Notes
The family of this 59-nucleotide RNA sequence from Photobacterium angustum is "Selenocysteine insertion sequence 3". Rfam's curators put it in the seed alignment. The literature on the family includes a 1996 paper in RNA by Huttenhofer et al., "Solution structure of mRNA hairpins promoting selenocysteine incorporation in Escherichia coli and their base-specific interaction with special elongation factor SELB". The family's RNA type in Rfam is cis-regulatory element. Rfam 15.1 lists 640 matches to the family in 593 species.

RNA sequence: AUUUGACACGGCCCAACGGUAGCAAGUCUUGCUCCAACAUUUGGCCGCGGUGCGAUGAC
Number, nucleotide and partner (000 for none) at each position: 001a000002u000003u000004u000005g000006a000007c049008a000009c047010g046011g045012c044013c043014c000015a042016a041017c000018g035019g034020u000021a033022g032023c031024a030025a029026g000027u000028c000029u025030u024031g023032c022033u021034c019035c018036a000037a000038c000039a000040u000041u016042u015043g013044g012045c011046c010047g009048c000049g007050g000051u000052g000053c000054g000055a000056u000057g000058a000059c000